Rfam assigns this 299-nucleotide RNA from Stegodyphus mimosarum to the family "Metazoan signal recognition particle RNA". Pairs were carried over by alignment from the consensus structure, which is taken from published work. Gene Ontology terms of the family: signal recognition particle, endoplasmic reticulum targeting and SRP-dependent cotranslational protein targeting to membrane, signal sequence recognition.

RNA sequence: ACCGGCACCGGUGGCGUGGUGCUGUAAUCCAGCUGCUUUGGAGGUCUGGUCUGCUGGACGGCGUGAGGUUGGGAGUUCUGUCCUCUGUUUCUCUAUGUCGAUCAGGCGUCCGCACUAAGCACGGUGUCGAUAUGGUUGAACUGGGGGAGCCCGGAUCCACCAGGUCGUCUAAGGAGGAGCGAACCGGCCCAGGGCGGAAACGCAGCAGGCAAAAGCUCCCGCACGGUGCAGUAGUGGGAUAGCGCUUGUGAAUAGGCGGCAGUGGGCAGCCCAUCCAAGAUAGUCGAACGCAGUCCUUU
Numbered sequence: 001a002c003c004g005g006c007a008c009c010g011g012u013g014g015c016g017u018g019g020u021g022c023u024g025u026a027a028u029c030c031a032g033c034u035g036c037u038u039u040g041g042a043g044g045u046c047u048g049g050u051c052u053g054c055u056g057g058a059c060g061g062c063g064u065g066a067g068g069u070u071g072g073g074a075g076u077u078c079u080g081u082c083c084u085c086u087g088u089u090u091c092u093c094u095a096u097g098u099c100g101a102u103c104a105g106g107c108g109u110c111c112g113c114a115c116u117a118a119g120c121a122c123g124g125u126g127u128c129g130a131u132a133u134g135g136u137u138g139a140a141c142u143g144g145g146g147g148a149g150c151c152c153g154g155a156u157c158c159a160c161c162a163g164g165u166c167g168u169c170u171a172a173g174g175a176g177g178a179g180c181g182a183a184c185c186g187g188c189c190c191a192g193g194g195c196g197g198a199a200a201c202g203c204a205g206c207a208g209g210c211a212a213a214a215g216c217u218c219c220c221g222c223a224c225g226g227u228g229c230a231g232u233a234g235u236g237g238g239a240u241a242g243c244g245c246u247u248g249u250g251a252a253u254a255g256g257c258g259g260c261a262g263u264g265g266g267c268a269g270c271c272c273a274u275c276c277a278a279g280a281u282a283g284u285c286g287a288a289c290g291c292a293g294u295c296c297u298u299u
Stems, first nucleotide, its partner, number of pairs: 001045003004023007028042003048296002051293004059286004067276002070273004078269006085262005092256005098250001103248007110238002113236005119229004124224004128167004133162004138157002141154005168174002176219005187210003194203003